[Rfam]
RNA sequence: AACAUUCAAAUACGAGCCCUUCAUAUAUCCUCGAUAAUAUGGAUCGAAAGUCUCUACCGAAUCACCGUAAAUGAUUUGACUAUGAAGGCAGAUGUUUCAGUG
Numbered sequence: 001a002a003c004a005u006u007c008a009a010a011u012a013c014g015a016g017c018c019c020u021u022c023a024u025a026u027a028u029c030c031u032c033g034a035u036a037a038u039a040u041g042g043a044u045c046g047a048a049a050g051u052c053u054c055u056a057c058c059g060a061a062u063c064a065c066c067g068u069a070a071a072u073g074a075u076u077u078g079a080c081u082a083u084g085a086a087g088g089c090a091g092a093u094g095u096u097u098c099a100g101u102g
Stems, first nucleotide, its partner, number of pairs: 018088008031047005058078007

Annotation
Purine riboswitch aptamer: a 102-nucleotide sequence from Peribacillus loiseleuriae. Pairs were carried over by alignment from the consensus structure, which is taken from published work.